[Rfam]
RNA sequence: GCUGAGUGCGCGUAUUCUUGGGUAAAUAAUAGGAUAGCGGGAUAUUAUUGCUUGAGAAUACACGUAUUCGAC
Numbered sequence: 001g002c003u004g005a006g007u008g009c010g011c012g013u014a015u016u017c018u019u020g021g022g023u024a025a026a027u028a029a030u031a032g033g034a035u036a037g038c039g040g041g042a043u044a045u046u047a048u049u050g051c052u053u054g055a056g057a058a059u060a061c062a063c064g065u066a067u068u069c070g071a072c
Base pairs, nucleotide, nucleotide: 001072003070004069005068008065009064010063012061013060014059015058016057017056018055019054020053021052022051023050025049026048027047028046029045030044031043
RNA: mir-137 microRNA precursor family
Organism: Owenia fusiformis